[Rfam]
RNA sequence: UUCCUUAUAAAUCUAGCCUCUACUAGGCUUUGUCUGUGCAUACGAAAGCCGAUCAGACAUAGCCUAUAAGAGGUUAGGUGUACCAAGGUG
Numbered sequence: 001u002u003c004c005u006u007a008u009a010a011a012u013c014u015a016g017c018c019u020c021u022a023c024u025a026g027g028c029u030u031u032g033u034c035u036g037u038g039c040a041u042a043c044g045a046a047a048g049c050c051g052a053u054c055a056g057a058c059a060u061a062g063c064c065u066a067u068a069a070g071a072g073g074u075u076a077g078g079u080g081u082a083c084c085a086a087g088g089u090g
Stems, first nucleotide, its partner, number of pairs: 011079009026064004031059005
mir-282 microRNA precursor family: a 90-nucleotide RNA sequence from Drosophila yakuba. The base pairs follow the family's consensus structure, which was predicted with RNAalifold. The sequence is in the family's curated seed alignment. Lineage of the source: Eukaryota > Insecta > Pterygota > Ephydroidea > Sophophora. Rfam 15.1 lists 136 matches to the family in 128 species. Rfam links the family to the GO terms RISC complex and miRNA-mediated post-transcriptional gene silencing.